[Rfam]
RNA sequence: AUACUUACCUGGCAUAGGGGACACCGUGAUCAAGAAGGCGGUUCCCCCAGAGCGAGGCCCUUCCAUUGCACUGCGGUUGGGUUGACCUUUGCGAAUAUCCCUAAUGUGGAUAUCUCGGAUGCGUAAUCUCAUAAGUAAUAGUAAUGUCGCUUUUUUUUUC
Numbered sequence: 001a002u003a004c005u006u007a008c009c010u011g012g013c014a015u016a017g018g019g020g021a022c023a024c025c026g027u028g029a030u031c032a033a034g035a036a037g038g039c040g041g042u043u044c045c046c047c048c049a050g051a052g053c054g055a056g057g058c059c060c061u062u063c064c065a066u067u068g069c070a071c072u073g074c075g076g077u078u079g080g081g082u083u084g085a086c087c088u089u090u091g092c093g094a095a096u097a098u099c100c101c102u103a104a105u106g107u108g109g110a111u112a113u114c115u116c117g118g119a120u121g122c123g124u125a126a127u128c129u130c131a132u133a134a135g136u137a138a139u140a141g142u143a144a145u146g147u148c149g150c151u152u153u154u155u156u157u158u159u160c
Base pairs, nucleotide, nucleotide: 012122013121014120015119017047018046019045020044021043023042024041025040026039027038049090050089051088052087054086056083057082058081060079063076064075092117093116094115095113096112097111099109100108137159138158140155143152144151
U1 spliceosomal RNA: a 160-nucleotide RNA sequence from Plutella xylostella. Rfam describes the family as follows. U1 is a small nuclear RNA (snRNA) component of the spliceosome (involved in pre-mRNA splicing). Its 5' end forms complementary base pairs with the 5' splice junction, thus defining the 5' donor site of an intron. There are significant differences in sequence and secondary structure between metazoan and yeast U1 snRNAs, the latter being much longer (568 nucleotides as compared to 164 nucleotides in human). Rfam links the family to the GO terms pre-mRNA 5'-splice site binding, U1 snRNP and mRNA 5'-splice site recognition. A reference for the family is Oubridge et al. (1994), "Crystal structure at 1.92 A resolution of the RNA-binding domain of the U1A spliceosomal protein complexed with an RNA hairpin", Nature.